[Rfam]
A member of the RNA family "mir-9256 microRNA precursor family" from Cnephaeus nilssonii, 67 nucleotides long. The match comes from Rfam's covariance-model search (80 bits). Rfam 15.1 lists 31,772 matches to the family in 5 species.
RNA sequence: ACAUACACUGAGUGGCCCGAUUAUUAUGACCUCUGAACGCAUUUUAAUCCGGCCACUCAGUGUAUAU
Number, nucleotide and partner (000 for none) at each position: 001a000002c000003a000004u064005a063006c062007a061008c060009u059010g058011a057012g056013u055014g054015g053016c052017c051018c000019g049020a048021u047022u046023a045024u000025u000026a042027u041028g040029a000030c000031c000032u000033c000034u000035g000036a000037a000038c000039g000040c028041a027042u026043u000044u000045u023046a022047a021048u020049c019050c000051g017052g016053c015054c014055a013056c012057u011058c010059a009060g008061u007062g006063u005064a004065u000066a000067u000